Record summary:
TPP riboswitch aptamer (THI element): a 105-nucleotide RNA from Brachybacterium nesterenkovii. It scores 70 bits against the family's covariance model. NCBI's taxonomy places the organism under Bacteria, Bacillati, Actinomycetes, Micrococcales, Brachybacterium.
RNA sequence: AUCCACUGACAGGGGAGCACCACGGGGUGCUGAGAGUGCGCACAGGCGCAGACCCUCGAACCUGAUCCGGUCAAUACCGGCGGAGGGAGUCGGGACAUCUCUCGU
Numbered sequence: 001a002u003c004c005a006c007u008g009a010c011a012g013g014g015g016a017g018c019a020c021c022a023c024g025g026g027g028u029g030c031u032g033a034g035a036g037u038g039c040g041c042a043c044a045g046g047c048g049c050a051g052a053c054c055c056u057c058g059a060a061c062c063u064g065a066u067c068c069g070g071u072c073a074a075u076a077c078c079g080g081c082g083g084a085g086g087g088a089g090u091c092g093g094g095a096c097a098u099c100u101c102u103c104g105u
Stems, first nucleotide, its partner, number of pairs: 006093005011056004017030005037050005061086003067080004